Source information
A member of the RNA family "mir-223 microRNA precursor family" from Cavia porcellus, 106 nucleotides long. Taxonomically the source falls in Cavia (Eukaryota, Bilateria, Euteleostomi, Sarcopterygii).
[Rfam]
RNA sequence: CUGAUGUCUUGCAGUACCACACUCCGUGUAUUUGACAAGCUGAGUUGGACACUCCAUGUGGUAGAGUGUCAGUUUGUCAAAUACCCCAAGUGCGGCACAUGCCUAG
Dot-bracket structure: ...................((((..(.((((((((((((((......((((.((.........)).)))))))))))))))))).)..))))..............
Its family is annotated with miRNA-mediated post-transcriptional gene silencing and RISC complex in the Gene Ontology. For this family Rfam cites "Vertebrate microRNA genes" (Lim et al., Science, 2003).